[Rfam]
RNA sequence: UAAUGAGGAAGUCAGCCUAAAAACGUCGCCGUGCGACAACGGCUGACUGACCCACGUCCUGUAGG
Numbered sequence: 001u002a003a004u005g006a007g008g009a010a011g012u013c014a015g016c017c018u019a020a021a022a023a024c025g026u027c028g029c030c031g032u033g034c035g036a037c038a039a040c041g042g043c044u045g046a047c048u049g050a051c052c053c054a055c056g057u058c059c060u061g062u063a064g065g
Stems, first nucleotide, its partner, number of pairs: 011047007025037005051065002054062002
This 65-nucleotide RNA sequence from Solibacillus silvestris belongs to the Rfam family "Bacillaceae-1 RNA". NCBI's taxonomy places the organism under Bacteria, Bacillati, Bacillota, Caryophanales, Solibacillus silvestris. By type it is a small RNA.